[Rfam]
RNA: Small nucleolar RNA SNORA64/SNORA10 family
RNA sequence: GCCCUCAUAGCUCAGCUUAAUCAUACUCAGUGUGUGGCGUAUUUUGAGAGAGAGAGGAAGGCCCUCCUAAGGCACGGCAGACUGGCCCCAAGUGGCCUCUCUGUCCCUAGGAGCGCAACAUCU
Numbered sequence: 001g002c003c004c005u006c007a008u009a010g011c012u013c014a015g016c017u018u019a020a021u022c023a024u025a026c027u028c029a030g031u032g033u034g035u036g037g038c039g040u041a042u043u044u045u046g047a048g049a050g051a052g053a054g055a056g057g058a059a060g061g062c063c064c065u066c067c068u069a070a071g072g073c074a075c076g077g078c079a080g081a082c083u084g085g086c087c088c089c090a091a092g093u094g095g096c097c098u099c100u101c102u103g104u105c106c107c108u109a110g111g112a113g114c115g116c117a118a119c120a121u122c123u
Stems, first nucleotide, its partner, number of pairs: 002056001004054003008050001011048005019035001022034005064113005070108003079102003084097004